The family of this 73-nucleotide RNA sequence from Citrobacter koseri is "Fluoride riboswitch aptamer (crcB RNA motif)". Pairs were carried over by alignment from the consensus structure, which is taken from published work.

RNA sequence: CCUGUGCAGGGUGAUGGCGUUCCACCUUAUUCCAACCGCCUCGUUUCAGUAGGCUGAUGACGCCUGAUAUGAC
Numbered sequence: 001c002c003u004g005u006g007c008a009g010g011g012u013g014a015u016g017g018c019g020u021u022c023c024a025c026c027u028u029a030u031u032c033c034a035a036c037c038g039c040c041u042c043g044u045u046u047c048a049g050u051a052g053g054c055u056g057a058u059g060a061c062g063c064c065u066g067a068u069a070u071g072a073c
Stems, first nucleotide, its partner, number of pairs: 010026004016064006038054004